RNA: glmS glucosamine-6-phosphate activated ribozyme aptamer
Organism: Lachnotalea glycerini
Nucleotides: 175
Stems, first nucleotide, its partner, number of pairs: 022061007071103005080091004104119005122165007136149005
Number, partner (000 for none) and nucleotide at each position: 001000u002000a003000a004000a005000a006000u007000a008000c009000u010000u011000u012000a013000g014000c015000g016000c017000c018000a019000u020000g021000c022061a023060c024059c025058u026057g027056c028055a029000a030000a031000g032000u033000a034000c035000g036000u037000a038000a039000c040000a041000g042000a043000g044000a045000c046000a047000g048000c049000u050000c051000u052000a053000g054000u055028u056027g057026c058025a059024g060023g061022u062000u063000a064000a065000c066000g067000a068000g069000g070000a071103a072102a073101a074100g075099a076000g077000u078000a079000a080091u081090c082089g083088a084000a085000c086000a087000u088083u089082c090081g091080g092000c093000g094000g095000a096000u097000g098000c099075u100074c101073u102072u103071u104119c105118g106117c107116a108115g109000a110000a111000a112000c113000a114000g115108c116107u117106g118105c119104g120000u121000a122165u123164a124163u125162a126161a127160g128159a129000a130000u131000a132000a133000a134000a135000c136149u137148a138147c139146a140145g141000g142000u143000a144000a145140c146139u147138g148137u149136a150000u151000c152000a153000c154000a155000a156000a157000u158000u159128u160127c161126u162125u163124a164123u165122a166000a167000c168000u169000g170000a171000u172000u173000a174000a175000c